The record is a 76-nucleotide sequence from Phrynocephalus forsythii, which matches "Small nucleolar RNA SNORD83" in Rfam. Pairs were carried over by alignment from the consensus structure, which was predicted with PFOLD. The match comes from Rfam's covariance-model search (61 bits). Taxonomically the source falls in Phrynocephalus (Eukaryota, Chordata, Lepidosauria, Agamidae). For this family Rfam cites "Characterisation of the U83 and U84 small nucleolar RNAs: two novel 2'-O-ribose methylation guide RNAs that lack complementarities to ribosomal RNAs" (Jady and Kiss, Nucleic Acids Res, 2000).

[Rfam]
RNA sequence: GCCAAAUGAUGUAAAACGUAAGAGCAUAGCACUCUGUGCAGAGAUGACAUACAUCUAUCACCCAAUACUGAUGGCU
Numbered sequence: 001g002c003c004a005a006a007u008g009a010u011g012u013a014a015a016a017c018g019u020a021a022g023a024g025c026a027u028a029g030c031a032c033u034c035u036g037u038g039c040a041g042a043g044a045u046g047a048c049a050u051a052c053a054u055c056u057a058u059c060a061c062c063c064a065a066u067a068c069u070g071a072u073g074g075c076u
Stems, first nucleotide, its partner, number of pairs: 001075004029039004